[Rfam]
RNA: tRNA
RNA sequence: GCCAGGAUGGCCGAGUGGUUAAGGCGGUGGUUUUAAGUUUCUUUUAUACUUAGCUCACCACUAUCGAGAGAUUCCAGGGUUCGAACCCCUGUCCUGGCA
Numbered sequence: 001g002c003c004a005g006g007a008u009g010g011c012c013g014a015g016u017g018g019u020u021a022a023g024g025c026g027g028u029g030g031u032u033u034u035a036a037g038u039u040u041c042u043u044u045u046a047u048a049c050u051u052a053g054c055u056c057a058c059c060a061c062u063a064u065c066g067a068g069a070g071a072u073u074c075c076a077g078g079g080u081u082c083g084a085a086c087c088c089c090u091g092u093c094c095u096g097g098c099a
Stems, first nucleotide, its partner, number of pairs: 001098007010025003027061005075091005